[Rfam]
RNA sequence: AUAUGGACUACGCCGAACUUCCCAAAGGAAUACGGGGGAACCAAUAUUAGUGGGGUGAAUCCGCUAUCAAGCGGUAGGGAUACCUUCCGUCCCGAACCCGUCAGCUAACCCCGGAGGCGAUUAGAAGGAGGAAAC
Numbered sequence: 001a002u003a004u005g006g007a008c009u010a011c012g013c014c015g016a017a018c019u020u021c022c023c024a025a026a027g028g029a030a031u032a033c034g035g036g037g038g039a040a041c042c043a044a045u046a047u048u049a050g051u052g053g054g055g056u057g058a059a060u061c062c063g064c065u066a067u068c069a070a071g072c073g074g075u076a077g078g079g080a081u082a083c084c085u086u087c088c089g090u091c092c093c094g095a096a097c098c099c100g101u102c103a104g105c106u107a108a109c110c111c112c113g114g115a116g117g118c119g120a121u122u123a124g125a126a127g128g129a130g131g132a133a134a135c
Stems, first nucleotide, its partner, number of pairs: 011119004019030002033113005042052002053099003061074004077093004

This 135-nucleotide RNA from Anaerosporomusa subterranea belongs to the Rfam family "c-di-AMP riboswitch aptamer (ydaO/yuaA leader)".
Taxonomically the source falls in Anaerosporomusa (Bacteria, Bacillota, Negativicutes, Acetonemataceae).
The literature on the family includes a 2004 paper in Proc Natl Acad Sci U S A by Barrick et al., "New RNA motifs suggest an expanded scope for riboswitches in bacterial genetic control".
The pairing is the family consensus, mapped onto this sequence.